[Rfam]
Nucleotides: 100
Base pairs, nucleotide, nucleotide: 001100002099003098004097005096010087011086014083015082016081017080018079019078020076021075022074026056027055029054030053031052032051034050035049036048040093041092042091044089060073061072062071063070
Number, partner (000 for none) and nucleotide at each position: 001100g002099g003098c004097a005096g006000a007000g008000u009000a010087g011086a012000u013000u014083a015082u016081u017080a018079c019078g020076c021075g022074u023000u024000a025000a026056g027055u028000g029054u030053c031052a032051g033000a034050u035049g036048g037000a038000c039000g040093g041092g042091a043000a044089g045000u046000u047000g048036c049035c050034a051032c052031u053030g054029a055027a056026c057000g058000a059000a060073a061072a062071a063070u064000c065000a066000a067000a068000a069000g070063a071062u072061u073060u074022g075021c076020g077000g078019u079018g080017u081016a082015a083014u084000u085000u086011u087010c088000g089044c090000a091042u092041u093040c094000c095000g096005c097004u098003g099002c100001c